[Rfam]
RNA sequence: GCGCAGAUGAUGGAAAACACUUUCGAACUGAGCUCAGUGAUGCUUUCAAAGGAACCACUGAUGCAC
Numbered sequence: 001g002c003g004c005a006g007a008u009g010a011u012g013g014a015a016a017a018c019a020c021u022u023u024c025g026a027a028c029u030g031a032g033c034u035c036a037g038u039g040a041u042g043c044u045u046u047c048a049a050a051g052g053a054a055c056c057a058c059u060g061a062u063g064c065a066c
Stems, first nucleotide, its partner, number of pairs: 001066001003064003
Source information
Shown here is a 66-nucleotide sequence from Anolis carolinensis, a member of the family "Small nucleolar RNA SNORD42". The family's RNA type in Rfam is C/D-box small nucleolar RNA. Rfam describes the family as follows. snoRNA U42 is found in intron 3 of the ribosomal protein L23a (RPL23a) gene in humans and is also present in mice. Rfam links the family to the GO terms nucleolus and RNA processing. The literature on the family includes a 2001 paper in EMBO J by Huttenhofer et al., "RNomics: an experimental approach that identifies 201 candidates for novel, small, non-messenger RNAs in mouse". The organism belongs to Anolis, within Eukaryota. Rfam 15.1 lists 848 matches to the family in 572 species.